[Rfam]
RNA sequence: GGGGAUGAUCGGUUUCGACAGCGGAUGUCGAAGUAGGGGAAGCGAGCCGAGGAAGCGGCAAUGAUCUCGUUAACCAUAUGCCGCGAAAAAAUAAUCGCCAAUAACCAGCGCGAUUCCUUCGCCCUCGCUGCCUGAUCAGCGACCUGCGAAGUGUCAGUCCGGGCGCGUUCCCGUCCCGGGUCCUGGCAUCAGCUAGGGAACUCACCCUCCGCUCCGGUCACGGGAGCUGAGCGGGACACCACACAGUGACUGAGCCCGUCGGAGACUUGUCCGCGUGAUCUCCGGGGCCGAGAAAAUCGCAGCGGACUGCGCUCGGAGAAGCCCUCCUUCCGCUCCGUUGGACGCGGGUUCGAUUCCCGCCAUCUCCACGA
Numbered sequence: 001g002g003g004g005a006u007g008a009u010c011g012g013u014u015u016c017g018a019c020a021g022c023g024g025a026u027g028u029c030g031a032a033g034u035a036g037g038g039g040a041a042g043c044g045a046g047c048c049g050a051g052g053a054a055g056c057g058g059c060a061a062u063g064a065u066c067u068c069g070u071u072a073a074c075c076a077u078a079u080g081c082c083g084c085g086a087a088a089a090a091a092u093a094a095u096c097g098c099c100a101a102u103a104a105c106c107a108g109c110g111c112g113a114u115u116c117c118u119u120c121g122c123c124c125u126c127g128c129u130g131c132c133u134g135a136u137c138a139g140c141g142a143c144c145u146g147c148g149a150a151g152u153g154u155c156a157g158u159c160c161g162g163g164c165g166c167g168u169u170c171c172c173g174u175c176c177c178g179g180g181u182c183c184u185g186g187c188a189u190c191a192g193c194u195a196g197g198g199a200a201c202u203c204a205c206c207c208u209c210c211g212c213u214c215c216g217g218u219c220a221c222g223g224g225a226g227c228u229g230a231g232c233g234g235g236a237c238a239c240c241a242c243a244c245a246g247u248g249a250c251u252g253a254g255c256c257c258g259u260c261g262g263a264g265a266c267u268u269g270u271c272c273g274c275g276u277g278a279u280c281u282c283c284g285g286g287g288c289c290g291a292g293a294a295a296a297u298c299g300c301a302g303c304g305g306a307c308u309g310c311g312c313u314c315g316g317a318g319a320a321g322c323c324c325u326c327c328u329u330c331c332g333c334u335c336c337g338u339u340g341g342a343c344g345c346g347g348g349u350u351c352g353a354u355u356c357c358c359g360c361c362a363u364c365u366c367c368a369c370g371a
Stems, first nucleotide, its partner, number of pairs: 001367007019340007030330004035325004043315005048069005055084006123151001125149004130144001152188006159179003162175004167201005205233001207231003211227002216251006254288004260284003264280002269307004344360005